RNA sequence: UAAUUUAUAAAAGCGCCAGGACUUAAACCGGAGCGGAAUUUAUUGGUUUAAGUUGACGAGGACAGGGUUUAUCGAAUUAUCGGCGGGUGCCCUGCGGUGUUACUCUCCACCGAUAAAAGCUUUACAAAACCUAUGAGCGAUUGUAGGAACAAAUAAAGCUGGGAGAGUAGU
Numbered sequence: 001u002a003a004u005u006u007a008u009a010a011a012a013g014c015g016c017c018a019g020g021a022c023u024u025a026a027a028c029c030g031g032a033g034c035g036g037a038a039u040u041u042a043u044u045g046g047u048u049u050a051a052g053u054u055g056a057c058g059a060g061g062a063c064a065g066g067g068u069u070u071a072u073c074g075a076a077u078u079a080u081c082g083g084c085g086g087g088u089g090c091c092c093u094g095c096g097g098u099g100u101u102a103c104u105c106u107c108c109a110c111c112g113a114u115a116a117a118a119g120c121u122u123u124a125c126a127a128a129a130c131c132u133a134u135g136a137g138c139g140a141u142u143g144u145a146g147g148a149a150c151a152a153a154u155a156a157a158g159c160u161g162g163g164a165g166a167g168u169a170g171u
Base pairs, nucleotide, nucleotide: 020054021053022052023051024050025049026048027047029045030044031043063094064093065092066091067090072083073082074081075080095112096111097110098109099108118160119159120158121157122156123155130147131146132145133144134143135142136141
RNA: glmS glucosamine-6-phosphate activated ribozyme aptamer
Organism: Caminicella sporogenes